[Rfam]
RNA sequence: AUGUAAGCGACUUUUCACUUUUUAGAUUCAUUCAAUAAAUGAUGUAUAUGAUAUAUAAUAUGGAUCACAUACAUUAUUUGUUGAAAGAACUUAAAAAAUGAAAAGUCGCUUACAU
Numbered sequence: 001a002u003g004u005a006a007g008c009g010a011c012u013u014u015u016c017a018c019u020u021u022u023u024a025g026a027u028u029c030a031u032u033c034a035a036u037a038a039a040u041g042a043u044g045u046a047u048a049u050g051a052u053a054u055a056u057a058a059u060a061u062g063g064a065u066c067a068c069a070u071a072c073a074u075u076a077u078u079u080g081u082u083g084a085a086a087g088a089a090c091u092u093a094a095a096a097a098a099u100g101a102a103a104a105g106u107c108g109c110u111u112a113c114a115u
Stems, first nucleotide, its partner, number of pairs: 002114006009107005015101003019097007027089003031085014049067004

Overview
This 115-nucleotide RNA sequence from Medicago truncatula belongs to the Rfam family "MIR2593 microRNA precursor family". Its family is annotated with RISC complex and miRNA-mediated post-transcriptional gene silencing in the Gene Ontology. The base pairs follow the family's consensus structure, which was predicted with RNAalifold. The family has 7 seed sequences and 1,262 matches in Rfam 15.1.